[Rfam]
A member of the RNA family "c-di-AMP riboswitch aptamer (ydaO/yuaA leader)" from Corynebacterium lowii, 201 nucleotides long. From the family's description: This family represents a conserved RNA structure found upstream of the ydaO and yuaA genes in Bacillus subtilis and related genes in other bacteria. Taxonomically the source falls in Corynebacterium (Bacteria, Bacillati, Actinomycetota, Mycobacteriales).

RNA sequence: UGAAAACUAAAGCCGAAUCCCUCGGAGAGCAAAGGCUCUCCAGGGGGCCGGGGAACCACUCGCUUCUGGGGUUUACCCCUCGGGAGAGUCUGGAACUUCUUAAGCCGCACUGAGCGGUGGGGAAGGAUCGGAUGGACUGAGGGGAGGAGCUUCCGUUUCCUCACUCGACAGCUAACCCGGUAGGCAUGACAGGAAGAUUUG
Numbered sequence: 001u002g003a004a005a006a007c008u009a010a011a012g013c014c015g016a017a018u019c020c021c022u023c024g025g026a027g028a029g030c031a032a033a034g035g036c037u038c039u040c041c042a043g044g045g046g047g048c049c050g051g052g053g054a055a056c057c058a059c060u061c062g063c064u065u066c067u068g069g070g071g072u073u074u075a076c077c078c079c080u081c082g083g084g085a086g087a088g089u090c091u092g093g094a095a096c097u098u099c100u101u102a103a104g105c106c107g108c109a110c111u112g113a114g115c116g117g118u119g120g121g122g123a124a125g126g127a128u129c130g131g132a133u134g135g136a137c138u139g140a141g142g143g144g145a146g147g148a149g150c151u152u153c154c155g156u157u158u159c160c161u162c163a164c165u166c167g168a169c170a171g172c173u174a175a176c177c178c179g180g181u182a183g184g185c186a187u188g189a190c191a192g193g194a195a196g197a198u199u200u201g
Base pairs, nucleotide, nucleotide: 012185013184014183018046019045020044021043022042047181048180049179050178051177052176057068058067069166070165071164077143078142079141080140081139082138083137146160147159148158149157